Shown here is a 221-nucleotide RNA, a member of the family "IS605-orfB-I RNA".
[Rfam]
RNA sequence: ACCUUAUACAGAUAUAGUGACGCAAGACAGUGGCGUAUCUCCCUGUAAGGUGGUGUUAAAAUAGAAGUAUAAACGACAGGUCUUAUUGUGUAGCAAUUUCGUUGAAAUAGGAUGAGUUUAUAUGGAAGAGGUUAACCGUAAGACCUUGAAUUGAAAAAUUCUAAAAUUGACCUAGCGAUACGGAAAUAGUUCUUAAUUUUCGUAUUACUAGUUACGGUAUC
Numbered sequence: 001a002c003c004u005u006a007u008a009c010a011g012a013u014a015u016a017g018u019g020a021c022g023c024a025a026g027a028c029a030g031u032g033g034c035g036u037a038u039c040u041c042c043c044u045g046u047a048a049g050g051u052g053g054u055g056u057u058a059a060a061a062u063a064g065a066a067g068u069a070u071a072a073a074c075g076a077c078a079g080g081u082c083u084u085a086u087u088g089u090g091u092a093g094c095a096a097u098u099u100c101g102u103u104g105a106a107a108u109a110g111g112a113u114g115a116g117u118u119u120a121u122a123u124g125g126a127a128g129a130g131g132u133u134a135a136c137c138g139u140a141a142g143a144c145c146u147u148g149a150a151u152u153g154a155a156a157a158a159u160u161c162u163a164a165a166a167u168u169g170a171c172c173u174a175g176c177g178a179u180a181c182g183g184a185a186a187u188a189g190u191u192c193u194u195a196a197u198u199u200u201c202g203u204a205u206u207a208c209u210a211g212u213u214a215c216g217g218u219a220u221c
Stems, first nucleotide, its partner, number of pairs: 001051008010040006017034002020031002022028001067123008081112007092103002129146005135218006141167001148161005172211004177206010
Rfam's curators put it in the seed alignment.